[Rfam]
RNA sequence: UGCAGGUAUUUUACGAUUAAGAAGCAAUUGCUUCUUAUACAGAUCGUGUAAUAAGCU
Numbered sequence: 001u002g003c004a005g006g007u008a009u010u011u012u013a014c015g016a017u018u019a020a021g022a023a024g025c026a027a028u029u030g031c032u033u034c035u036u037a038u039a040c041a042g043a044u045c046g047u048g049u050a051a052u053a054a055g056c057u
Stems, first nucleotide, its partner, number of pairs: 018037008
Rfam assigns this 57-nucleotide sequence from Musa troglodytarum to the family "Plastid-rps18 3UTR RNA".
Lineage of the source: Eukaryota > Viridiplantae > Spermatophyta > commelinids > Musa.
The literature on the family includes a 2023 paper in Plant Commun by Richter et al., "Retrograde signaling in plants: A critical review focusing on the GUN pathway and beyond".
Plastid rps18 is a non-coding RNA (ncRNA) present in plastids. It was identified as a short stem-loop motif in the 3 prime untranslate region (3UTR) of rps18 gene.
Rfam classes the family as a cis-regulatory element.